[Rfam]
RNA sequence: AUGUGAGCAGUGCUUUUGAGGACUGUCCAACCUGAGAAUGCUGAAUUAACGGGUCAAUCUCAGGUUCGUCAGCCCAUGAAAAGCUGUCUCCAU
Numbered sequence: 001a002u003g004u005g006a007g008c009a010g011u012g013c014u015u016u017u018g019a020g021g022a023c024u025g026u027c028c029a030a031c032c033u034g035a036g037a038a039u040g041c042u043g044a045a046u047u048a049a050c051g052g053g054u055c056a057a058u059c060u061c062a063g064g065u066u067c068g069u070c071a072g073c074c075c076a077u078g079a080a081a082a083g084c085u086g087u088c089u090c091c092a093u
Stems, first nucleotide, its partner, number of pairs: 005090003008086004014081004020075002023072003027068001029066009039056002

A member of the RNA family "mir-1388 microRNA precursor family" from Electrophorus electricus, 93 nucleotides long. Gene Ontology terms of the family: RISC complex and miRNA-mediated post-transcriptional gene silencing. A reference for the family is Murchison et al. (2008), "Conservation of small RNA pathways in platypus", Genome Res. The match comes from Rfam's covariance-model search (88 bits). The family's consensus secondary structure was predicted with RNAalifold.